[Rfam]
RNA sequence: ACAGCCGCCGCGGGAGAGUCCCAGGGUCCGUCACCUGGGCGCCGAAGGAGCAAAUUCUCCCUCAGAAUCUCUCAGGCACCCGGUACCGCAGCGGUCAG
Number, nucleotide and partner (000 for none) at each position: 001a000002c000003a000004g000005c000006c093007g092008c091009c000010g089011c088012g087013g086014g000015a000016g000017a000018g000019u000020c039021c038022c037023a036024g035025g034026g000027u000028c000029c000030g000031u000032c000033a000034c025035c024036u023037g022038g021039g020040c000041g077042c076043c075044g073045a072046a000047g000048g071049a070050g069051c000052a000053a000054a000055u000056u000057c000058u000059c000060c000061c000062u000063c000064a000065g000066a000067a000068u000069c050070u049071c048072u045073c044074a000075g043076g042077c041078a000079c000080c000081c000082g000083g000084u000085a000086c013087c012088g011089c010090a000091g008092c007093g006094g000095u000096c000097a000098g000